[Rfam]
Annotation
The record is a 102-nucleotide RNA from a Micromonosporaceae bacterium, which matches "mraW RNA" in Rfam.
RNA sequence: CGGUGGCCGUGCCGCGAGCUCUCCAGCCGCUGGCGUCCUGGCGCCUCUUCCCCGGUGCCAGGGAUCGAGCGGAUGGGGAGCUGGCGGUGCGGCGCCGUCACC
Numbered sequence: 001c002g003g004u005g006g007c008c009g010u011g012c013c014g015c016g017a018g019c020u021c022u023c024c025a026g027c028c029g030c031u032g033g034c035g036u037c038c039u040g041g042c043g044c045c046u047c048u049u050c051c052c053c054g055g056u057g058c059c060a061g062g063g064a065u066c067g068a069g070c071g072g073a074u075g076g077g078g079a080g081c082u083g084g085c086g087g088u089g090c091g092g093c094g095c096c097g098u099c100a101c102c
Stems, first nucleotide, its partner, number of pairs: 010089006018081002021078005027072005033066001036063009
It scores 52 bits against the family's covariance model.